This 114-nucleotide RNA from Pseudescherichia vulneris belongs to the Rfam family "Ribosomal S15 leader". About the family: The E. coli Ribosomal S15 gene 5' UTR can form two alternative structures. NCBI's taxonomy places the organism under Bacteria, Pseudomonadati, Enterobacteriaceae, Pseudescherichia, Pseudescherichia vulneris. The match comes from Rfam's covariance-model search (109 bits). Its family is annotated with regulation of translation, ncRNA-mediated in the Gene Ontology.
RNA sequence: UGGGAUCGCUGAAUUAGAGAUCGGCAUCCUUUCAUUUUUUUAAUUCUGGAGUUCAAAAUGUCUCUAAGCGUUGAAGCUAAAGCAAAAAUCGUUUCCGAGUUCGGUCGUGGCGAA
Numbered sequence: 001u002g003g004g005a006u007c008g009c010u011g012a013a014u015u016a017g018a019g020a021u022c023g024g025c026a027u028c029c030u031u032u033c034a035u036u037u038u039u040u041u042a043a044u045u046c047u048g049g050a051g052u053u054c055a056a057a058a059u060g061u062c063u064c065u066a067a068g069c070g071u072u073g074a075a076g077c078u079a080a081a082g083c084a085a086a087a088a089u090c091g092u093u094u095c096c097g098a099g100u101u102c103g104g105u106c107g108u109g110g111c112g113a114a
Base pairs, nucleotide, nucleotide: 008025009024010023011022012021045068047066048065049064050063051062